Rfam assigns this 38-nucleotide RNA to the family "abiF RNA". Rfam's curators write: Actinobacteria, Bacteroidetes, Clostridia, Proteobacteria, one Clostridia phage. The family's RNA type in Rfam is small RNA.
[Rfam]
RNA sequence: GCCGCCACGCCUCUUAGCAAUGCGCAAACUUGGCGGCU
Numbered sequence: 001g002c003c004g005c006c007a008c009g010c011c012u013c014u015u016a017g018c019a020a021u022g023c024g025c026a027a028a029c030u031u032g033g034c035g036g037c038u
Stems, first nucleotide, its partner, number of pairs: 001037006008024003